[Rfam]
RNA sequence: AGGGAAUAUGAUGAGAUAAAAAGAGGCAGUGGAUUGGGUCUUUCAUUUUGUGGAAGGUCUGCCGUGAGCUCUUUUUUUUUAACGACAUCUCCUUCCAAUGAGCCCU
Numbered sequence: 001a002g003g004g005a006a007u008a009u010g011a012u013g014a015g016a017u018a019a020a021a022a023g024a025g026g027c028a029g030u031g032g033a034u035u036g037g038g039u040c041u042u043u044c045a046u047u048u049u050g051u052g053g054a055a056g057g058u059c060u061g062c063c064g065u066g067a068g069c070u071c072u073u074u075u076u077u078u079u080u081a082a083c084g085a086c087a088u089c090u091c092c093u094u095c096c097a098a099u100g101a102g103c104c105c106u
Stems, first nucleotide, its partner, number of pairs: 001106004
Small nucleolar RNA Z152/R70/R12/: a 106-nucleotide RNA from Gossypium arboreum.
Lineage of the source: Eukaryota > Streptophyta > Euphyllophyta > Malvales > Gossypium.
Pairs were carried over by alignment from the consensus structure, which was predicted with PFOLD.
A search with the family's covariance model found it, with a score of 52 bits.